Rfam assigns this 35-nucleotide RNA sequence to the family "DUF805b RNA". Pairs were carried over by alignment from the consensus structure, which is taken from published work.

RNA sequence: ACGGAGGAAGCCGAAAAUCCGUACUAGAGUAGGCG
Numbered sequence: 001a002c003g004g005a006g007g008a009a010g011c012c013g014a015a016a017a018u019c020c021g022u023a024c025u026a027g028a029g030u031a032g033g034c035g
Stems, first nucleotide, its partner, number of pairs: 002021004010034003